Purine riboswitch aptamer: a 101-nucleotide RNA sequence from Paenibacillus aquistagni. Lineage of the source: Bacteria > Bacillota > Bacilli > Paenibacillaceae > Paenibacillus. Its family is annotated with purine nucleobase biosynthetic process in the Gene Ontology.

RNA sequence: GCUCUCAUCAUACGUCCAUCUCGUAUAGGAGCAGGAAUUGGCUUGCUCGUCUCUACCUGAUCACCGUAAAUGAUCGGACUACGGGAGCUUUUUAGAAUCUG
Number, nucleotide and partner (000 for none) at each position: 001g000002c000003u000004c000005u000006c000007a000008u000009c000010a000011u000012a000013c000014g000015u000016c000017c000018a000019u086020c085021u084022c083023g082024u081025a080026u000027a000028g000029g048030a047031g046032c045033a044034g043035g042036a000037a000038u000039u000040g000041g000042c035043u034044u033045g032046c031047u030048c029049g000050u000051c000052u000053c000054u000055a000056c000057c077058u076059g075060a074061u073062c072063a071064c000065c000066g000067u000068a000069a000070a000071u063072g062073a061074u060075c059076g058077g057078a000079c000080u025081a024082c023083g022084g021085g020086a019087g000088c000089u000090u000091u000092u000093u000094a000095g000096a000097a000098u000099c000100u000101g000

Its Rfam clan is "Purine riboswitches".